[Rfam]
RNA sequence: CCCAGGGCUUACGCCUUGGGCUAGAGGAUUUCGCGCCUAUAGCGCU
Numbered sequence: 001c002c003c004a005g006g007g008c009u010u011a012c013g014c015c016u017u018g019g020g021c022u023a024g025a026g027g028a029u030u031u032c033g034c035g036c037c038u039a040u041a042g043c044g045c046u
Base pairs, nucleotide, nucleotide: 001020002019003018004017005016006015007014008013033045034044035043036042

The record is a 46-nucleotide sequence from Verrucomicrobia bacterium LW23, which matches "Acido-Lenti-1 RNA" in Rfam. Rfam 15.1 lists 2,607 matches to the family in 171 species. A search with the family's covariance model found it, with a score of 44 bits.